[Rfam]
RNA: RNase MRP
RNA sequence: GGAUGUUCUGAAGACCUGCUAGCUAGGCCACGCACGGAGGACACUGGUUCCUCAUGGGCCCCGCGCCCGCCUAGGGGAAAGUCCCCGGACCGCCGGCAGAAAGUGCCGGGCGCUGCACGCGCCCCCGCCCGCCCCCACCUCACGCCAUUCCGCCGAGACGCCCCCCGGCCGAGCGGGUGAAGGCGGGGCGGGCUCUCGUCACGGCCACAGACACGCAGGUAGUGUGCAGGCGCACUAACAAAACGGGGCUCACUCUCAGACCAUC
Numbered sequence: 001g002g003a004u005g006u007u008c009u010g011a012a013g014a015c016c017u018g019c020u021a022g023c024u025a026g027g028c029c030a031c032g033c034a035c036g037g038a039g040g041a042c043a044c045u046g047g048u049u050c051c052u053c054a055u056g057g058g059c060c061c062c063g064c065g066c067c068c069g070c071c072u073a074g075g076g077g078a079a080a081g082u083c084c085c086c087g088g089a090c091c092g093c094c095g096g097c098a099g100a101a102a103g104u105g106c107c108g109g110g111c112g113c114u115g116c117a118c119g120c121g122c123c124c125c126c127g128c129c130c131g132c133c134c135c136c137a138c139c140u141c142a143c144g145c146c147a148u149u150c151c152g153c154c155g156a157g158a159c160g161c162c163c164c165c166c167g168g169c170c171g172a173g174c175g176g177g178u179g180a181a182g183g184c185g186g187g188g189c190g191g192g193c194u195c196u197c198g199u200c201a202c203g204g205c206c207a208c209a210g211a212c213a214c215g216c217a218g219g220u221a222g223u224g225u226g227c228a229g230g231c232g233c234a235c236u237a238a239c240a241a242a243a244c245g246g247g248g249c250u251c252a253c254u255c256u257c258a259g260a261c262c263a264u265c
Base pairs, nucleotide, nucleotide: 002265003264004263005262007260008259009258010257011256014220015219016218017217018216019215023074024073025072026071027070028069037053038052039051040050041049080250081249083248084247085246086245095107096106097105098104108124109123110122111121112120113119126192128190132188133187134186135185138182140180141179150176151175152174153173160169161168162167222235223234224233225232226231